This 132-nucleotide RNA sequence from Juglans regia belongs to the Rfam family "Small nucleolar RNA snoR111". NCBI's taxonomy places the organism under Eukaryota, Tracheophyta, Spermatophyta, Gunneridae, Juglans. On this family, see Marker et al., Curr Biol 2002: "Experimental RNomics: identification of 140 candidates for small non-messenger RNAs in the plant Arabidopsis thaliana". Gene Ontology terms of the family: nucleolus and RNA processing. It scores 77 bits against the family's covariance model.
RNA sequence: AACAGAAAAGGGGAGAUAGCUCUAGGUCUCCUGCGUUCAGAAGAACAUUGAGGUAUAACAAAAAUCAAUGGCCGAGAUAUCGUUCAAUUGUCAUCUUUUUUUAUUGGCGAUUCGAUUGUUGCUCGUCCACAU
Numbered sequence: 001a002a003c004a005g006a007a008a009a010g011g012g013g014a015g016a017u018a019g020c021u022c023u024a025g026g027u028c029u030c031c032u033g034c035g036u037u038c039a040g041a042a043g044a045a046c047a048u049u050g051a052g053g054u055a056u057a058a059c060a061a062a063a064a065u066c067a068a069u070g071g072c073c074g075a076g077a078u079a080u081c082g083u084u085c086a087a088u089u090g091u092c093a094u095c096u097u098u099u100u101u102u103a104u105u106g107g108c109g110a111u112u113c114g115a116u117u118g119u120u121g122c123u124c125g126u127c128c129a130c131a132u
Stems, first nucleotide, its partner, number of pairs: 003040001005038003012032002015029001070128002073125004079116004087111007